mir-8364 microRNA precursor family: a 61-nucleotide RNA from Pristionchus pacificus.
The organism belongs to Pristionchus, within Eukaryota.
RNA sequence: UCUUCAUUCCACACACUCUCUCGUCGACCGAGCGGGCGAGAGAGUGUGCAAAAUGAAGAGA
Dot-bracket structure: (((((((....((((((.((((...............)))).))))))....)))))))..
Rfam links the family to the GO terms miRNA-mediated post-transcriptional gene silencing and RISC complex.